[Rfam]
RNA sequence: UUUUAUUACGUAUCGAACACUUAUAUAAUUGCCAUAAUAGGGAUGGCGCGUUUCUACCCGGUUACCGUAAAUGACUGGACUAUAAGUGAGAUAGAAGUUGAC
Number, nucleotide and partner (000 for none) at each position: 001u000002u000003u000004u000005a000006u000007u000008a000009c000010g000011u000012a000013u000014c000015g000016a000017a000018c088019a087020c086021u085022u084023a083024u082025a081026u000027a000028a000029u000030u048031g047032c046033c045034a044035u043036a000037a000038u000039a000040g000041g000042g000043a035044u034045g033046g032047c031048g030049c000050g000051u000052u000053u000054c000055u000056a000057c000058c078059c077060g076061g075062u074063u073064a072065c000066c000067g000068u000069a000070a000071a000072u064073g063074a062075c061076u060077g059078g058079a000080c000081u025082a024083u023084a022085a021086g020087u019088g018089a000090g000091a000092u000093a000094g000095a000096a000097g000098u000099u000100g000101a000102c000
RNA: Purine riboswitch aptamer